[Rfam]
RNA sequence: GAAAAUAUGUUGUUUUAGUAUUUGUCCAGUAGGUUUCCUCAAGGAGAAAGCCCCC
Number, nucleotide and partner (000 for none) at each position: 001g000002a000003a000004a000005a000006u000007a000008u000009g000010u000011u000012g000013u000014u000015u000016u000017a000018g000019u000020a000021u000022u000023u000024g000025u000026c000027c000028a000029g000030u000031a000032g052033g051034u050035u049036u048037c000038c046039u045040c044041a000042a000043g000044g040045a039046g038047a000048a036049a035050g034051c033052c032053c000054c000055c000